[Rfam]
RNA sequence: GAAGAACUGAGAUCGAUUGGUGCAUAGAUAUAUCGCCAAAAAAAAUUCACAUUUUAUUACAAUUCUAGCACCAUUCGAAAUCAGUGCUUU
Dot-bracket structure: (((((.((((..(((..(((((..((((...................................)))).)))))..)))..))))).))))